[Rfam]
RNA sequence: AAUCCCCUGCGGUGUUCGUCAAGGUCGUAAAUUCCUUUGAACCAAUGUCCAUGCGACAUGGUCGCCGCCCAUCGACGCCGCUGUUGCGAGCGCUCCUCGUCGAGCGCACCUGAUGCGGCAGGAACGCGACCUCCCUGAACCCAGGUUCAGGAUGCCGGCCUAACGGCACAGGCGGGGGACUG
Number, nucleotide and partner (000 for none) at each position: 001a000002a000003u179004c178005c177006c176007c175008u174009g173010c172011g000012g169013u168014g167015u166016u000017c165018g164019u163020c000021a000022a000023g000024g000025u000026c000027g000028u000029a000030a000031a000032u000033u152034c151035c150036u000037u000038u149039g148040a147041a146042c145043c144044a000045a000046u000047g000048u000049c000050c000051a000052u000053g000054c000055g000056a000057c000058a000059u000060g131061g130062u129063c000064g127065c126066c000067g000068c000069c122070c000071a000072u000073c000074g000075a000076c000077g119078c118079c117080g116081c115082u000083g000084u000085u000086g109087c000088g000089a000090g000091c106092g105093c104094u103095c102096c000097u000098c000099g000100u000101c000102g095103a094104g093105c092106g091107c000108a000109c086110c000111u000112g000113a000114u000115g081116c080117g079118g078119c077120a000121g000122g069123a000124a000125c000126g065127c064128g000129a062130c061131c060132u000133c000134c000135c000136u000137g000138a000139a000140c000141c000142c000143a000144g043145g042146u041147u040148c039149a038150g035151g034152a033153u000154g000155c000156c000157g000158g000159c000160c000161u000162a000163a019164c018165g017166g015167c014168a013169c012170a000171g000172g010173c009174g008175g007176g006177g005178g004179a003180c000181u000182g000
Description
Shown here is a 182-nucleotide RNA from Sulfurisoma sediminicola, a member of the family "6S / SsrS RNA". On this family, see Wassarman and Storz, Cell 2000: "6S RNA regulates E. coli RNA polymerase activity". Rfam 15.1 lists 5,006 matches to the family in 4,638 species. NCBI's taxonomy places the organism under Bacteria, Pseudomonadati, Pseudomonadota, Betaproteobacteria, Sulfurisoma. Rfam describes the family as follows. E. coli 6S RNA was the first non coding RNA to be sequenced, but its function was unknown until recently. It consists of 184 nucleotides that fold into an extended hairpin structure with a large single-stranded internal bulge.